[Rfam]
RNA sequence: UAUCUUUGCGCCCUCAAACGGAUAAACCGUUUAGUACAUAAAAAUCAUUUAAAGAAUAUUGGCAUG
Numbered sequence: 001u002a003u004c005u006u007u008g009c010g011c012c013c014u015c016a017a018a019c020g021g022a023u024a025a026a027c028c029g030u031u032u033a034g035u036a037c038a039u040a041a042a043a044a045u046c047a048u049u050u051a052a053a054g055a056a057u058a059u060u061g062g063c064a065u066g
Base pairs, nucleotide, nucleotide: 014034016032017031018030019029
RNA: S15-Flavobacteria ribosomal protein leader